[Rfam]
RNA sequence: UUCUUUGACAAUUUGUUAAAUAAACCAUAUGACAGACUACAAUGCAAUGUAGUAUGGAUAUUAUCUUGUUCUUAUUAGUUACAAGUGCGAAUUUGUGAUGGAUUGAGUAGGCUGAGAGGUAACUCGUUUAAAAUGCUAGAACUUACAAAAUGUAGGGAAAGAGAUAAUAGUGGUUUGUUAUGAAAUGUUAUAAGGUAUAGAGGUCUAGUCGCCGAUAAUCAAAACCGCUUAUGGAAUAUAGGACGAUAACUUGCUAGUAAUACUAUAUUAUGGUGAUAUAGAGUGAAAGUAAGAUACCAUAAAUCGGUGUUGCAGUUGAGAUAUAGAGAUAUAUGUAUAAGACUAGUGCCUAGUUUGAGUAGCACAAAUCUGCAAGAUUACAUGGAUAAUUAGGAUUAACAAGAAAAAAGGGUUUUUUAAAUUAAUGCUUCUAACGUGUGUGAAAAUUGUUGGUAAUGAAUCCAAUAUGGUCUAGGGUAUUUAUACUAGGUAUUAGAGGAAAUAAGGUCGCUCCUUAUCAGGACUAAUACUUGCCAUUGACUGAAUAAUAAUUGUUCAUAAUGAAUUAGUGUGAGAAACACUAUUUAACAAAUUGUCAAAG
Dot-bracket structure: ..........(.((..(.((....(((((.......(((((......)))))))))).((((((......((((((.(((((((((....))))))))).))).)))(((...(.(((....))).))))...((..(....)..))................))))))......(..(.........(.....(..(((....((((((((((((...........((((.......)))).......((((((....((.((((....[[[[...)))).))...))))))..]]]]...))))))..[[[[[.....(((((....)))))......))))))...)))...(.....(((((...]]]]].......................................................[[[....)))))....)....(.(.........).)..(((...................(...(.(.((..((((((.....))))))).]]])).)...)..))).....)........).........)..)....((((.....))))...)).)..)).).......
The family of this 601-nucleotide sequence is "ROOL RNA". From the family's description: Firmicutes, Fusobacteria (1 example), Tenericutes (1 example). It is one of the family's seed sequences. Rfam classes the family as a small RNA.